mir-10 microRNA precursor family: a 73-nucleotide RNA from Sarcophilus harrisii. It scores 58 bits against the family's covariance model. Lineage of the source: Eukaryota > Vertebrata > Sarcopterygii > Dasyuromorphia > Sarcophilus. The base pairs follow the family's consensus structure, which was predicted with PFOLD.
[Rfam]
RNA sequence: UGGCACCCACCCGUAGAUCCGACCUUGCGGGGCGCCGGCCACACACAAGCUCGAGUCUGUGGGUCUGUGUCGG
Numbered sequence: 001u002g003g004c005a006c007c008c009a010c011c012c013g014u015a016g017a018u019c020c021g022a023c024c025u026u027g028c029g030g031g032g033c034g035c036c037g038g039c040c041a042c043a044c045a046c047a048a049g050c051u052c053g054a055g056u057c058u059g060u061g062g063g064u065c066u067g068u069g070u071c072g073g
Stems, first nucleotide, its partner, number of pairs: 002071005010063003015058004020053003024049004029044001